[Rfam]
RNA: small nucleolar RNA snoR137
Organism: Papaver nudicaule
RNA sequence: GUUGCUUCUUAUAGAAUCUUAAUUGGUGAACCCUCUUAAAAUUUUAAAUUAGAGAAGUUCAUGUAUUGAGAAGCAUAAAUCAAACUGUGAGCCAGUAUUAAACAGCAGGAUGCACUUUUCCCUUGCAUCACUGUUACCUGUCUUCUGGUAUAUUU
Numbered sequence: 001g002u003u004g005c006u007u008c009u010u011a012u013a014g015a016a017u018c019u020u021a022a023u024u025g026g027u028g029a030a031c032c033c034u035c036u037u038a039a040a041a042u043u044u045u046a047a048a049u050u051a052g053a054g055a056a057g058u059u060c061a062u063g064u065a066u067u068g069a070g071a072a073g074c075a076u077a078a079a080u081c082a083a084a085c086u087g088u089g090a091g092c093c094a095g096u097a098u099u100a101a102a103c104a105g106c107a108g109g110a111u112g113c114a115c116u117u118u119u120c121c122c123u124u125g126c127a128u129c130a131c132u133g134u135u136a137c138c139u140g141u142c143u144u145c146u147g148g149u150a151u152a153u154u155u
Stems, first nucleotide, its partner, number of pairs: 003075006027061005033054004091149005097143001104135003108131001109129004